This 130-nucleotide RNA from Aceticella autotrophica belongs to the Rfam family "c-di-AMP riboswitch aptamer (ydaO/yuaA leader)".

[Rfam]
RNA sequence: AAUUGAAAUAUGCCGAAUCCCCAGAAAAAGGGGUACGGGGGAAUUUUUAUGGGGUGAAUCCAUUAUUAUGGUAGGGUGACCCUUUACCCAAACCCGUCAACUAACCUCGGAGGCAAAAGGGGGAAAAUUA
Numbered sequence: 001a002a003u004u005g006a007a008a009u010a011u012g013c014c015g016a017a018u019c020c021c022c023a024g025a026a027a028a029a030g031g032g033g034u035a036c037g038g039g040g041g042a043a044u045u046u047u048u049a050u051g052g053g054g055u056g057a058a059u060c061c062a063u064u065a066u067u068a069u070g071g072u073a074g075g076g077u078g079a080c081c082c083u084u085u086a087c088c089c090a091a092a093c094c095c096g097u098c099a100a101c102u103a104a105c106c107u108c109g110g111a112g113g114c115a116a117a118a119g120g121g122g123g124a125a126a127a128u129u130a
Base pairs, nucleotide, nucleotide: 011115012114013113014112019033020032021031022030036109037108038107039106040105045051052095053094054093060071061070062069063068074089075088076087077086
NCBI's taxonomy places the organism under Bacteria, Bacillota, Clostridia, Thermoanaerobacteraceae, Aceticella. A search with the family's covariance model found it, with a score of 94 bits. The literature on the family includes a 2004 paper in Proc Natl Acad Sci U S A by Barrick et al., "New RNA motifs suggest an expanded scope for riboswitches in bacterial genetic control".